[Rfam]
RNA: Selenocysteine insertion sequence 1
RNA sequence: CUCAGCGGGAUGACGAGAAGGGCUGAAAUGUUGCCAAGUCAGGCCCUUUUCUGAUGGUGGCUGGG
Numbered sequence: 001c002u003c004a005g006c007g008g009g010a011u012g013a014c015g016a017g018a019a020g021g022g023c024u025g026a027a028a029u030g031u032u033g034c035c036a037a038g039u040c041a042g043g044c045c046c047u048u049u050u051c052u053g054a055u056g057g058u059g060g061c062u063g064g065g
Base pairs, nucleotide, nucleotide: 001065002064003063004062005061015051016050017049018048019047020046021045022044023043024042030040032038
Dot-bracket structure: (((((.........((((((((((.....(.(.....).).)))))))))).........)))))